[Rfam]
The record is a 149-nucleotide RNA sequence from Propithecus coquereli, which matches "Small nucleolar RNA SNORA57" in Rfam. The family's RNA type in Rfam is H/ACA-box small nucleolar RNA. U99 belongs to the H/ACA class of snoRNAs which are thought to guide the sites of modification of uridines to pseudouridines, the target for this family is unknown. The organism belongs to Propithecus, within Eukaryota. On this family, see Vitali et al., Nucleic Acids Res 2003: "Identification of 13 novel human modification guide RNAs".
RNA sequence: UGUCCUUUUCUUGGCAGGGAGUAGGCAUGUGAUCCCACUCCCCAUUAUGGACAGAGGCAGAGGGGAAGGGCUCCAGCCCCCUCAGGGUUGUGUUGUCAGUGCUGGUGGCUUCCCGUCCGCCGGUUCUAUCGUCACGUGCCAGGACCCUG
Numbered sequence: 001u002g003u004c005c006u007u008u009u010c011u012u013g014g015c016a017g018g019g020a021g022u023a024g025g026c027a028u029g030u031g032a033u034c035c036c037a038c039u040c041c042c043c044a045u046u047a048u049g050g051a052c053a054g055a056g057g058c059a060g061a062g063g064g065g066a067a068g069g070g071c072u073c074c075a076g077c078c079c080c081c082u083c084a085g086g087g088u089u090g091u092g093u094u095g096u097c098a099g100u101g102c103u104g105g106u107g108g109c110u111u112c113c114c115g116u117c118c119g120c121c122g123g124u125u126c127u128a129u130c131g132u133c134a135c136g137u138g139c140c141a142g143g144a145c146c147c148u149g
Stems, first nucleotide, its partner, number of pairs: 001057001003055002017042004022037001024035002085139001087137002102123007